[Rfam]
RNA sequence: AUUAGAUAUAAGCCGAAUUUCAAUUGAAAACGGGGGAACCAUAAGAAGUGAAGGGUGCAUAUAGACGUAAGUUUAGGCGCCGAUCUUCAGGGGUGAAUUUCGUUCCGGGAACGAAUAGGGCACUGCAGCUGCCCGAAUCCGUCAGCUAACCUCGUAGGCUUCAGAACACUGCAGGA
Dot-bracket structure: ..........((((...(((......)))((((((....(.................................................)(((.....((((.........))))..((((.........))))...))).........)))))).))))................

Record summary: This 176-nucleotide sequence from Paenibacillus agri belongs to the Rfam family "c-di-AMP riboswitch aptamer (ydaO/yuaA leader)". Rfam links the family to the GO terms regulation of gene expression and cyclic-di-AMP binding. A search with the family's covariance model found it, with a score of 90 bits. This family represents a conserved RNA structure found upstream of the ydaO and yuaA genes in Bacillus subtilis and related genes in other bacteria.